[Rfam]
Source information
The family of this 138-nucleotide RNA sequence from Nonomuraea pusilla is "c-di-AMP riboswitch aptamer (ydaO/yuaA leader)". Gene Ontology terms of the family: regulation of gene expression and cyclic-di-AMP binding. The source organism's lineage runs through Bacteria, Actinomycetota, Streptosporangiales, Streptosporangiaceae and Nonomuraea.
RNA sequence: UCGGUCGUUAUGCCUAAUCCCGGGCGUGUCGCCCGGGAGCCGGGGGCCCACCGCACCUGGGGUGAAUCCACUUCGGUGGUAGGGCAGCUCCCUUGCCCGAACCCGUCAGCUAACCCGGCCGGCAGAGGGAGAGGAACC
Numbered sequence: 001u002c003g004g005u006c007g008u009u010a011u012g013c014c015u016a017a018u019c020c021c022g023g024g025c026g027u028g029u030c031g032c033c034c035g036g037g038a039g040c041c042g043g044g045g046g047c048c049c050a051c052c053g054c055a056c057c058u059g060g061g062g063u064g065a066a067u068c069c070a071c072u073u074c075g076g077u078g079g080u081a082g083g084g085c086a087g088c089u090c091c092c093u094u095g096c097c098c099g100a101a102c103c104c105g106u107c108a109g110c111u112a113a114c115c116c117g118g119c120c121g122g123c124a125g126a127g128g129g130a131g132a133g134g135a136a137c138c
Stems, first nucleotide, its partner, number of pairs: 011124004018038009039119006049059002060104003068079004082098004